[Rfam]
RNA sequence: UUACCUCACGGAAAUGAUGCCUUCCGACUGAACCGCCCUAAAAAGCUGAUGGCGUCUACUGAAUC
Number, nucleotide and partner (000 for none) at each position: 001u000002u000003a000004c000005c000006u000007c000008a000009c000010g025011g024012a023013a022014a000015u000016g056017a055018u054019g053020c052021c051022u013023u012024c011025c010026g000027a000028c000029u000030g000031a000032a000033c000034c000035g046036c045037c000038c000039u000040a000041a000042a000043a000044a000045g036046c035047u000048g000049a000050u000051g021052g020053c019054g018055u017056c016057u000058a000059c000060u000061g000062a000063a000064u000065c000